Rfam assigns this 83-nucleotide sequence from Paraburkholderia sp. DHOC27 to the family "Burkholderia sRNA 54". The family has 4 seed sequences and 91 matches in Rfam 15.1. Rfam links the family to the GO term bacterial biofilm matrix. Lineage of the source: Bacteria > Pseudomonadati > Betaproteobacteria > Burkholderiaceae > Paraburkholderia. For this family Rfam cites "Identification of small RNAs abundant in Burkholderia cenocepacia biofilms reveal putative regulators with a potential role in carbon and iron metabolism" (Sass et al., Sci Rep, 2017). About the family: Identified by RNA-seq, RACE and Northern blot. Strongly expressed in biofilm.
RNA sequence: ACGUCUCUCAGGUUCUGGCGUUUUUUUCGUCCCUCGGAAGCCAGAACUUUUCAGCCGGUCUGGCAACAGACCGGCUUUUUUUC
Dot-bracket structure: .........((((((((((....................))))))))))...((((((((((....)))))))))).......